About this RNA:
The record is a 79-nucleotide RNA sequence from Punica granatum, which matches "Small nucleolar RNA R160" in Rfam. snoR160 is a C/D box small nucleolar RNA, which acts as a methylation guide for 25S ribosomal RNA in plants. snoR160 has been alternatively named snoZ270 in rice.
[Rfam]
RNA sequence: AGCAAAGUGAUGAGACUCUUGUGUCUGAAUAUGAUGUGGAAUCACAGAUCAUAUAUGCCUUCAAAGUUCUCUGAUUGCU
Numbered sequence: 001a002g003c004a005a006a007g008u009g010a011u012g013a014g015a016c017u018c019u020u021g022u023g024u025c026u027g028a029a030u031a032u033g034a035u036g037u038g039g040a041a042u043c044a045c046a047g048a049u050c051a052u053a054u055a056u057g058c059c060u061u062c063a064a065a066g067u068u069c070u071c072u073g074a075u076u077g078c079u
Stems, first nucleotide, its partner, number of pairs: 001079005
Gene Ontology terms of the family: RNA processing and nucleolus. It scores 66 bits against the family's covariance model.